[Rfam]
RNA sequence: GCGGAUGGCUGGAUGACCGCGUGGGGGCAACCCCGCGAGGAAAGUCCGGACUCCAUGAAGGAACGGUGCCGGGUAACGCCCGGCGGGGGCAACCCCAGGGAAAGCGCCACAGAGAACAGACCGCCCCUGCUCGCAGGGGUAAGGGUGAAACGGUGGGGUAAGAGCCCACCGCGGGACUGGCAACAGGACCGGCACGGCAAGCCCCACCGGGAGCAACGCCGAAUAGGGGCCUCGCGCGGGGCUGGUCGGGCAACCGAUACCGCCGCAGGGUAACUUCGACCCGAGAGGUCCGGGUUGGCAGCUAGAGCGCGCAGGCAACCGCGCGCCCAGAUGAAUGGUCAUCAAAGGGGGCAACCCCGGAACAAAAUCCGGCUUACAGGCCAUCCGCGCGU
Numbered sequence: 001g002c003g004g005a006u007g008g009c010u011g012g013a014u015g016a017c018c019g020c021g022u023g024g025g026g027g028c029a030a031c032c033c034c035g036c037g038a039g040g041a042a043a044g045u046c047c048g049g050a051c052u053c054c055a056u057g058a059a060g061g062a063a064c065g066g067u068g069c070c071g072g073g074u075a076a077c078g079c080c081c082g083g084c085g086g087g088g089g090c091a092a093c094c095c096c097a098g099g100g101a102a103a104g105c106g107c108c109a110c111a112g113a114g115a116a117c118a119g120a121c122c123g124c125c126c127c128u129g130c131u132c133g134c135a136g137g138g139g140u141a142a143g144g145g146u147g148a149a150a151c152g153g154u155g156g157g158g159u160a161a162g163a164g165c166c167c168a169c170c171g172c173g174g175g176a177c178u179g180g181c182a183a184c185a186g187g188a189c190c191g192g193c194a195c196g197g198c199a200a201g202c203c204c205c206a207c208c209g210g211g212a213g214c215a216a217c218g219c220c221g222a223a224u225a226g227g228g229g230c231c232u233c234g235c236g237c238g239g240g241g242c243u244g245g246u247c248g249g250g251c252a253a254c255c256g257a258u259a260c261c262g263c264c265g266c267a268g269g270g271u272a273a274c275u276u277c278g279a280c281c282c283g284a285g286a287g288g289u290c291c292g293g294g295u296u297g298g299c300a301g302c303u304a305g306a307g308c309g310c311g312c313a314g315g316c317a318a319c320c321g322c323g324c325g326c327c328c329a330g331a332u333g334a335a336u337g338g339u340c341a342u343c344a345a346a347g348g349g350g351g352c353a354a355c356c357c358c359g360g361a362a363c364a365a366a367a368u369c370c371g372g373c374u375u376a377c378a379g380g381c382c383a384u385c386c387g388c389g390c391g392u
Stems, first nucleotide, its partner, number of pairs: 001388010011377001012343007020037007042375003046372005051213004060276002064209005069083005084098001085096004099204002104202002106198003121144002123140007152170006171193001172191003177186003218299003227291006268282004307326006314319001
RNA: Bacterial RNase P class A